RNA: Alphaproteobacteria transfer-messenger RNA
RNA sequence: AGGCUUUUCAGCCGAGUGUUUCGUUCCUAUAUUCCGCGUUGUCGGCGCAAGCUGACUAUGGCGAUACACGGUCGUUGGAAUAAGCCCAUCGGACCCGGGGGCGGUACCCGGCGCCUCCACCAGAACCGAUCCGGACGGGUCGGCUGUGGCGGGGGCGAAACAGGAUCGACGAGGGUGUAAAGAACGCGCCGUCGCCCGGCAUGGUACCGCCGUUAUCGGGCCGUACAAUAGUUGCGAACGACAACUAUGCUCCGGUUGCUCAGGCCGCGUAACGCGGUCUGAAAAGCCGAUCCAAGCCCUGACGGGUUAGCUCCGUCAGGCGGGGUUCGGAGGCACCUGGCAACAGAAGCCUCCACU
Numbered sequence: 001a002g003g004c005u006u007u008u009c010a011g012c013c014g015a016g017u018g019u020u021u022c023g024u025u026c027c028u029a030u031a032u033u034c035c036g037c038g039u040u041g042u043c044g045g046c047g048c049a050a051g052c053u054g055a056c057u058a059u060g061g062c063g064a065u066a067c068a069c070g071g072u073c074g075u076u077g078g079a080a081u082a083a084g085c086c087c088a089u090c091g092g093a094c095c096c097g098g099g100g101g102c103g104g105u106a107c108c109c110g111g112c113g114c115c116u117c118c119a120c121c122a123g124a125a126c127c128g129a130u131c132c133g134g135a136c137g138g139g140u141c142g143g144c145u146g147u148g149g150c151g152g153g154g155g156c157g158a159a160a161c162a163g164g165a166u167c168g169a170c171g172a173g174g175g176u177g178u179a180a181a182g183a184a185c186g187c188g189c190c191g192u193c194g195c196c197c198g199g200c201a202u203g204g205u206a207c208c209g210c211c212g213u214u215a216u217c218g219g220g221c222c223g224u225a226c227a228a229u230a231g232u233u234g235c236g237a238a239c240g241a242c243a244a245c246u247a248u249g250c251u252c253c254g255g256u257u258g259c260u261c262a263g264g265c266c267g268c269g270u271a272a273c274g275c276g277g278u279c280u281g282a283a284a285a286g287c288c289g290a291u292c293c294a295a296g297c298c299c300u301g302a303c304g305g306g307u308u309a310g311c312u313c314c315g316u317c318a319g320g321c322g323g324g325g326u327u328c329g330g331a332g333g334c335a336c337c338u339g340g341c342a343a344c345a346g347a348a349g350c351c352u353c354c355a356c357u
Stems, first nucleotide, its partner, number of pairs: 041056005060196005070190003073186004085175003089172003095111005112157007197212004202223003207219002323338004329354006